[Rfam]
RNA sequence: AUGCCUUAAAGUUGUGAGUAAGAAAAAUAACAAUUUGGGGUGAUACCUGAAUCCUCACUGCUAAUGUGAGAUGAAAUUUUGAGCAGGUAUAGGUUGCCCCUAAGGUGACCCACCUACUUUGCGGGAUGUGUGGGAGCUGCAACCUACCCA
Numbered sequence: 001a002u003g004c005c006u007u008a009a010a011g012u013u014g015u016g017a018g019u020a021a022g023a024a025a026a027a028u029a030a031c032a033a034u035u036u037g038g039g040g041u042g043a044u045a046c047c048u049g050a051a052u053c054c055u056c057a058c059u060g061c062u063a064a065u066g067u068g069a070g071a072u073g074a075a076a077u078u079u080u081g082a083g084c085a086g087g088u089a090u091a092g093g094u095u096g097c098c099c100c101u102a103a104g105g106u107g108a109c110c111c112a113c114c115u116a117c118u119u120u121g122c123g124g125g126a127u128g129u130g131u132g133g134g135a136g137c138u139g140c141a142a143c144c145u146a147c148c149c150a
Stems, first nucleotide, its partner, number of pairs: 005022004033052007054070005086148003091145007100134002103131001105129003109125003113121001

The family of this 150-nucleotide RNA sequence from Erinaceus europaeus is "U12 minor spliceosomal RNA". The family is grouped with related families in Rfam's "U2 clan". Lineage of the source: Eukaryota > Eumetazoa > Euteleostomi > Eutheria > Erinaceus. It is annotated as a spliceosomal small nuclear RNA.